Overview:
MIR2629 microRNA precursor family: a 72-nucleotide RNA from Medicago truncatula. NCBI's taxonomy places the organism under Eukaryota, eudicotyledons, Gunneridae, Pentapetalae, Medicago. A search with the family's covariance model found it, with a score of 66 bits. Its family is annotated with RISC complex and miRNA-mediated post-transcriptional gene silencing in the Gene Ontology.
[Rfam]
RNA sequence: GGUUUGAGGUUUCCUCGGCAGUUAACUGCAGCCGUAUUUCUAAAACUUUGGCAGUUAACUGCCGAGGGGCAU
Number, nucleotide and partner (000 for none) at each position: 001g000002g000003u000004u000005u000006g000007a000008g000009g000010u000011u000012u068013c067014c000015u065016c064017g063018g062019c061020a060021g059022u058023u057024a056025a055026c054027u053028g052029c051030a000031g000032c000033c000034g000035u000036a000037u000038u000039u000040c000041u000042a000043a000044a000045a000046c000047u000048u000049u000050g000051g029052c028053a027054g026055u025056u024057a023058a022059c021060u020061g019062c018063c017064g016065a015066g000067g013068g012069g000070c000071a000072u000